[Rfam]
RNA sequence: UGCAUACAUGAUGAGCACUAAGGGACUUAAUACUGAAGAAUGUGAUGUCACUUAUUUAUAACUCUGAUGUGC
Numbered sequence: 001u002g003c004a005u006a007c008a009u010g011a012u013g014a015g016c017a018c019u020a021a022g023g024g025a026c027u028u029a030a031u032a033c034u035g036a037a038g039a040a041u042g043u044g045a046u047g048u049c050a051c052u053u054a055u056u057u058a059u060a061a062c063u064c065u066g067a068u069g070u071g072c
Stems, first nucleotide, its partner, number of pairs: 002072005
RNA: Small nucleolar RNA SNORD82